[Rfam]
Shown here is a 98-nucleotide RNA from Propithecus coquereli, a member of the family "mir-544 microRNA precursor family". On this family, see Chiang et al., Genes Dev 2010: "Mammalian microRNAs: experimental evaluation of novel and previously annotated genes". The family has 16 seed sequences and 10,750 matches in Rfam 15.1.
RNA sequence: AUUACCUGGGGAUCUUGUUAAAAUGCAGAUUCUGGUUGAGUAGGUCUGAGGUGGGGCCCAAGAGUCUGUAUUUCUAGCGAGCUCUAGAGUGAUGCUGC
Dot-bracket structure: ..(((...(((..((((((((((.(((((.(((...........................))).))))).))).))))))).)))...))).......